[Rfam]
RNA sequence: CCUGAGUAACCUUUGCUAGUCCUGACUCAGCCAGUACUGGUCUUAGACUGGUGAUGGGUCAGGGUUCAUAUUUUGGCAUCUCUCUCUGGG
Numbered sequence: 001c002c003u004g005a006g007u008a009a010c011c012u013u014u015g016c017u018a019g020u021c022c023u024g025a026c027u028c029a030g031c032c033a034g035u036a037c038u039g040g041u042c043u044u045a046g047a048c049u050g051g052u053g054a055u056g057g058g059u060c061a062g063g064g065u066u067c068a069u070a071u072u073u074u075g076g077c078a079u080c081u082c083u084c085u086c087u088g089g090g
Stems, first nucleotide, its partner, number of pairs: 001089002004086003014078006020064010030052006037046003
Dot-bracket structure: ((.(((.......((((((((((((((((((((((.(((....)))))))))..))))))))))........)))))).....))).)).
About this RNA:
Rfam assigns this 90-nucleotide RNA from Pan troglodytes to the family "mir-554 microRNA precursor family". NCBI's taxonomy places the organism under Eukaryota, Bilateria, Eutheria, Hominidae, Pan. Its family is annotated with RISC complex and miRNA-mediated post-transcriptional gene silencing in the Gene Ontology.